[Rfam]
RNA sequence: UGUUAAAAUUUUCAUUCAUUUAUACUGUUAAAACCUAACAUGAUUAACGGAAUAACUAGACAGUAGCACAUUGCGUGUCACAUGUACCUUAUGUUGACAUAUAAGGACCAAAUGUUACAAUAAAAAUGAAUAAAAAUUUCAAUA
Numbered sequence: 001u002g003u004u005a006a007a008a009u010u011u012u013c014a015u016u017c018a019u020u021u022a023u024a025c026u027g028u029u030a031a032a033a034c035c036u037a038a039c040a041u042g043a044u045u046a047a048c049g050g051a052a053u054a055a056c057u058a059g060a061c062a063g064u065a066g067c068a069c070a071u072u073g074c075g076u077g078u079c080a081c082a083u084g085u086a087c088c089u090u091a092u093g094u095u096g097a098c099a100u101a102u103a104a105g106g107a108c109c110a111a112a113u114g115u116u117a118c119a120a121u122a123a124a125a126a127u128g129a130a131u132a133a134a135a136a137u138u139u140c141a142a143u144a
Base pairs, nucleotide, nucleotide: 002143003142004141006139007138008137009136010135011134012133014131015130016129018127019126020125021124023122024121026119029117030116031115033113
This 144-nucleotide RNA sequence from Gossypium klotzschianum belongs to the Rfam family "MIR7502 microRNA precursor family".
Rfam links the family to the GO terms RISC complex and miRNA-mediated post-transcriptional gene silencing.
The source organism's lineage runs through Eukaryota, Pentapetalae, Malvales, Malvoideae and Gossypium.